[Rfam]
RNA sequence: AGCUUUGCGCAGUGGCAGUAUCGUAGCCAAUGAGGUUUAUCUAAGGCGUGAUUAUUGCUAAUUAAAUAAAAUUAAAUUGAAAAUCAGGCGCUUCUGGCUGGUUCAGUCAAUAGAGCAUGGGACUCUUGAUCUAGG
Numbered sequence: 001a002g003c004u005u006u007g008c009g010c011a012g013u014g015g016c017a018g019u020a021u022c023g024u025a026g027c028c029a030a031u032g033a034g035g036u037u038u039a040u041c042u043a044a045g046g047c048g049u050g051a052u053u054a055u056u057g058c059u060a061a062u063u064a065a066a067u068a069a070a071a072u073u074a075a076a077u078u079g080a081a082a083a084u085c086a087g088g089c090g091c092u093u094c095u096g097g098c099u100g101g102u103u104c105a106g107u108c109a110a111u112a113g114a115g116c117a118u119g120g121g122a123c124u125c126u127u128g129a130u131c132u133a134g135g
Stems, first nucleotide, its partner, number of pairs: 020052005026047003034042002084120003088116002091113002095109006
Dot-bracket structure: ...................(((((.(((.....((.....))..))))))))...............................(((.((.((..((((((...))))))..)).)).)))...............